[Rfam]
RNA: Streptococcus sRNA SpF59 (ldcC RNA)
RNA sequence: UGACCAGUUUCAUUAUUGAAACUCAAGGCCAUACGGACAGCCGGGUCAACUGCCGG
Numbered sequence: 001u002g003a004c005c006a007g008u009u010u011c012a013u014u015a016u017u018g019a020a021a022c023u024c025a026a027g028g029c030c031a032u033a034c035g036g037a038c039a040g041c042c043g044g045g046u047c048a049a050c051u052g053c054c055g056g
Stems, first nucleotide, its partner, number of pairs: 001048005006023006